Rfam assigns this 46-nucleotide RNA sequence from Persicirhabdus sediminis to the family "Acido-Lenti-1 RNA".
RNA sequence: CCCAGGGCUGAAGCCCUAGGCUUUGUUCUUUUGCGCCUUCAGCGCG
Number, nucleotide and partner (000 for none) at each position: 001c020002c019003c000004a017005g016006g015007g014008c013009u000010g000011a000012a000013g008014c007015c006016c005017u004018a000019g002020g001021c000022u000023u000024u000025g000026u000027u000028c000029u000030u000031u000032u000033g045034c044035g043036c042037c000038u000039u000040c000041a000042g036043c035044g034045c033046g000

The family's consensus secondary structure is taken from published work. The family's RNA type in Rfam is small RNA. The match comes from Rfam's covariance-model search (44 bits).